[Rfam]
RNA: mir-365 microRNA precursor family
Organism: Oncorhynchus kisutch
RNA sequence: CAGCAGGAAAAGUAAGGGGCUUUUAGGGGCAGCUGUGUUUUAUUAACUCAGCCAUAAUGCCCCUAAAAACCCUUAUUGCUCUUUGCA
Dot-bracket structure: ..............(((((.(((.(((((((..((((...............)))).))))))).))).))))).............